Rfam assigns this 101-nucleotide sequence from Halomonas sp. 1513 to the family "t44 RNA". A reference for the family is Tjaden et al. (2002), "Transcriptome analysis of Escherichia coli using high-density oligonucleotide probe arrays", Nucleic Acids Res. The match comes from Rfam's covariance-model search (70 bits). This family consists of a number of bacterial RNA genes of between 135 and 170 bases in length. The organism belongs to Halomonas, within Bacteria.
[Rfam]
RNA sequence: GCGUAUGAACGCCUAAAUCACACAUGCACCGUCACAUGGUCCCGGGUGCCUGCGUCACGCGAGUGCGCUGGUCGGAUCCAUGGGGUGCAUGGAGGCCUAAC
Numbered sequence: 001g002c003g004u005a006u007g008a009a010c011g012c013c014u015a016a017a018u019c020a021c022a023c024a025u026g027c028a029c030c031g032u033c034a035c036a037u038g039g040u041c042c043c044g045g046g047u048g049c050c051u052g053c054g055u056c057a058c059g060c061g062a063g064u065g066c067g068c069u070g071g072u073c074g075g076a077u078c079c080a081u082g083g084g085g086u087g088c089a090u091g092g093a094g095g096c097c098u099a100a101c
Base pairs, nucleotide, nucleotide: 023091024090025089026088027087028086029085030084035082036081037080038079039078040076041075042074048072049071050070052068053067054066
By type it is a small RNA.